Mitochondrial DNA control region secondary structure A: a 104-nucleotide RNA from Cercocebus atys. It is annotated as an antisense RNA. The source organism's lineage runs through Eukaryota, Gnathostomata, Teleostomi, Primates and Cercocebus.
RNA sequence: GUAUUCUAUGGGGUGCACUUUUUAAGUUUGACUUAAGUACUAACUUAUUUUACAACCUCUUAUGUAAUUCGUGCAUUACUGCUAGCCAACACGAAUAUUACAUA
Numbered sequence: 001g002u003a004u005u006c007u008a009u010g011g012g013g014u015g016c017a018c019u020u021u022u023u024a025a026g027u028u029u030g031a032c033u034u035a036a037g038u039a040c041u042a043a044c045u046u047a048u049u050u051u052a053c054a055a056c057c058u059c060u061u062a063u064g065u066a067a068u069u070c071g072u073g074c075a076u077u078a079c080u081g082c083u084a085g086c087c088a089a090c091a092c093g094a095a096u097a098u099u100a101c102a103u104a
Stems, first nucleotide, its partner, number of pairs: 005095001007093001009091002011087002015082003022036006037057001041052003062076005
It scores 76 bits against the family's covariance model.